RNA sequence: UUGUUAUCACGAAAGCUGGAGGGAAUAGACCCAAUGAAAGCUUAGCAACCCUAUUAAAUAGAAGGUGCUACAUUCUAUUCGCAAUUUGCGAAAAAGAUAACUU
Numbered sequence: 001u002u003g004u005u006a007u008c009a010c011g012a013a014a015g016c017u018g019g020a021g022g023g024a025a026u027a028g029a030c031c032c033a034a035u036g037a038a039a040g041c042u043u044a045g046c047a048a049c050c051c052u053a054u055u056a057a058a059u060a061g062a063a064g065g066u067g068c069u070a071c072a073u074u075c076u077a078u079u080c081g082c083a084a085u086u087u088g089c090g091a092a093a094a095a096g097a098u099a100a101c102u103u
Stems, first nucleotide, its partner, number of pairs: 003101006013043005021032003026077004044069004049065002051061004073095001078092006

This 103-nucleotide RNA from Flavobacterium indicum belongs to the Rfam family "SAM riboswitch aptamer (S box leader)". The literature on the family includes a 1998 paper in Mol Microbiol by Grundy and Henkin, "The S box regulon: a new global transcription termination control system for methionine and cysteine biosynthesis genes in gram-positive bacteria". Lineage of the source: Bacteria > Pseudomonadati > Bacteroidota > Flavobacterium > Flavobacterium indicum. Rfam links the family to the GO term regulation of gene expression.